[Rfam]
RNA sequence: UCCCGGACUACGCCGAGUCCUGCCCGGCCGGGACGACCCCCCGAGACAUCGAGGGCAGGAGUGGGGGACCCACAGGUUCCACGCCGAUCUGCGAUCGGCUCGGGGUGAAGCCGCCACCCGUCGAGACGGGUGGGGGCGGGGCACUUUCCAGACCCAACCCGACAGCUCACCUCACAGGCGUGGGAAAGGAACGAC
Numbered sequence: 001u002c003c004c005g006g007a008c009u010a011c012g013c014c015g016a017g018u019c020c021u022g023c024c025c026g027g028c029c030g031g032g033a034c035g036a037c038c039c040c041c042c043g044a045g046a047c048a049u050c051g052a053g054g055g056c057a058g059g060a061g062u063g064g065g066g067g068a069c070c071c072a073c074a075g076g077u078u079c080c081a082c083g084c085c086g087a088u089c090u091g092c093g094a095u096c097g098g099c100u101c102g103g104g105g106u107g108a109a110g111c112c113g114c115c116a117c118c119c120g121u122c123g124a125g126a127c128g129g130g131u132g133g134g135g136g137c138g139g140g141g142c143a144c145u146u147u148c149c150a151g152a153c154c155c156a157a158c159c160c161g162a163c164a165g166c167u168c169a170c171c172u173c174a175c176a177g178g179c180g181u182g183g184g185a186a187a188g189g190a191a192c193g194a195c
Stems, first nucleotide, its partner, number of pairs: 011180004018060008061175006071102001103160003111135002114132001138155003